[Rfam]
RNA: RtT RNA
RNA sequence: AUCUGCGAAAUCUACAGGUGGAUGAGAACCAGCGAAGGUGGUUCGAGCCGAGGCACUUUGUGCCGAGACGACGUUGCGGCGCAGACGCAACGGCCCGAAGGGGAACAAUCCACCUCCCACCACCA
Numbered sequence: 001a002u003c004u005g006c007g008a009a010a011u012c013u014a015c016a017g018g019u020g021g022a023u024g025a026g027a028a029c030c031a032g033c034g035a036a037g038g039u040g041g042u043u044c045g046a047g048c049c050g051a052g053g054c055a056c057u058u059u060g061u062g063c064c065g066a067g068a069c070g071a072c073g074u075u076g077c078g079g080c081g082c083a084g085a086c087g088c089a090a091c092g093g094c095c096c097g098a099a100g101g102g103g104a105a106c107a108a109u110c111c112a113c114c115u116c117c118c119a120c121c122a123c124c125a
Stems, first nucleotide, its partner, number of pairs: 016115006023108001042099004049065002072092006